[Rfam]
RNA: Bacterial RNase P class A
Organism: Flagellimonas lutaonensis
RNA sequence: AGUGCAGGCCACCUUAUCGCGCUGACGAUAAAUGUCAGCGAGGAAAGUCCGGACACCAUAGUGCAGCAUAGCGGGUAACGCCCGUCUCCCGAAUUUUCGGGACGGACCAGUGCAACAGAAAGUAUGUACAGUUCGGCUGUAGUGAAAUCAGGUAAACUCUAUGCGGUGAAACGCCAUGUAAACCAGCGUCCCGAUCACCCCCGAUAGCUAUCGGGGCGGUAGAGGGUUGCACGCCCGAGCUGGAGGGUAGGCGGUUAGAGGUACAGGGUAACUUGUAUCCUAGAUAAAUGAUAAGGCUUUGACAGAAUCCGGCUUAUGGCCUGUUUUUUUA
Numbered sequence: 001a002g003u004g005c006a007g008g009c010c011a012c013c014u015u016a017u018c019g020c021g022c023u024g025a026c027g028a029u030a031a032a033u034g035u036c037a038g039c040g041a042g043g044a045a046a047g048u049c050c051g052g053a054c055a056c057c058a059u060a061g062u063g064c065a066g067c068a069u070a071g072c073g074g075g076u077a078a079c080g081c082c083c084g085u086c087u088c089c090c091g092a093a094u095u096u097u098c099g100g101g102a103c104g105g106a107c108c109a110g111u112g113c114a115a116c117a118g119a120a121a122g123u124a125u126g127u128a129c130a131g132u133u134c135g136g137c138u139g140u141a142g143u144g145a146a147a148u149c150a151g152g153u154a155a156a157c158u159c160u161a162u163g164c165g166g167u168g169a170a171a172c173g174c175c176a177u178g179u180a181a182a183c184c185a186g187c188g189u190c191c192c193g194a195u196c197a198c199c200c201c202c203g204a205u206a207g208c209u210a211u212c213g214g215g216g217c218g219g220u221a222g223a224g225g226g227u228u229g230c231a232c233g234c235c236c237g238a239g240c241u242g243g244a245g246g247g248u249a250g251g252c253g254g255u256u257a258g259a260g261g262u263a264c265a266g267g268g269u270a271a272c273u274u275g276u277a278u279c280c281u282a283g284a285u286a287a288a289u290g291a292u293a294a295g296g297c298u299u300u301g302a303c304a305g306a307a308u309c310c311g312g313c314u315u316a317u318g319g320c321c322u323g324u325u326u327u328u329u330u331a
Stems, first nucleotide, its partner, number of pairs: 001327002004324008012296007020040008045315003049312005054168004061232004066164005071085005086104001087102006105159002110157002112153002127141006172253004183243005224236004260279008